[Rfam]
RNA sequence: CUCGGUCACGGGUAUUCUCGGGUUAUAAUACAGAUGUGGAUGUUAUUGCUUGAGAAUACGCGUAGCUGAG
Numbered sequence: 001c002u003c004g005g006u007c008a009c010g011g012g013u014a015u016u017c018u019c020g021g022g023u024u025a026u027a028a029u030a031c032a033g034a035u036g037u038g039g040a041u042g043u044u045a046u047u048g049c050u051u052g053a054g055a056a057u058a059c060g061c062g063u064a065g066c067u068g069a070g
Base pairs, nucleotide, nucleotide: 001070002069003068004067005066008063009062010061012059013058014057015056016055017054018053019052020051021050022049023048025046026045027044028043029042030041031039
A member of the RNA family "mir-137 microRNA precursor family" from Conger conger, 70 nucleotides long.
Its Rfam clan is "mir-137 clan".
Rfam 15.1 lists 1,138 matches to the family in 797 species.
Its family is annotated with miRNA-mediated post-transcriptional gene silencing and RISC complex in the Gene Ontology.